RNA sequence: GAUGACAAUAGGGAGCUCCCUUCAGUCCAAGAUGCGACAGAAGAAACUGAACACAGCUCCUGCAUCGUUGGAUCAAAAACCCAUUAUCAAAACUCGACGUAUACAAUGAGUUCAUGAACCAACGAGUCAGCAGCUGAUUUCAGCUCUCGAGCUGCCUCGGACUGGACUGAAGGAAGCUCCUUUAAUUCGCCAC
Numbered sequence: 001g002a003u004g005a006c007a008a009u010a011g012g013g014a015g016c017u018c019c020c021u022u023c024a025g026u027c028c029a030a031g032a033u034g035c036g037a038c039a040g041a042a043g044a045a046a047c048u049g050a051a052c053a054c055a056g057c058u059c060c061u062g063c064a065u066c067g068u069u070g071g072a073u074c075a076a077a078a079a080c081c082c083a084u085u086a087u088c089a090a091a092a093c094u095c096g097a098c099g100u101a102u103a104c105a106a107u108g109a110g111u112u113c114a115u116g117a118a119c120c121a122a123c124g125a126g127u128c129a130g131c132a133g134c135u136g137a138u139u140u141c142a143g144c145u146c147u148c149g150a151g152c153u154g155c156c157u158c159g160g161a162c163u164g165g166a167c168u169g170a171a172g173g174a175a176g177c178u179c180c181u182u183u184a185a186u187u188c189g190c191c192a193c
Stems, first nucleotide, its partner, number of pairs: 013179005019173002023169007036156001057133002060130003066124004074116001
Notes: A member of the RNA family "MIR159 microRNA precursor family" from Handroanthus impetiginosus, 193 nucleotides long. For this family Rfam cites "A diverse and evolutionarily fluid set of microRNAs in Arabidopsis thaliana" (Rajagopalan et al., Genes Dev, 2006). A search with the family's covariance model found it, with a score of 78 bits. The organism belongs to Handroanthus, within Eukaryota.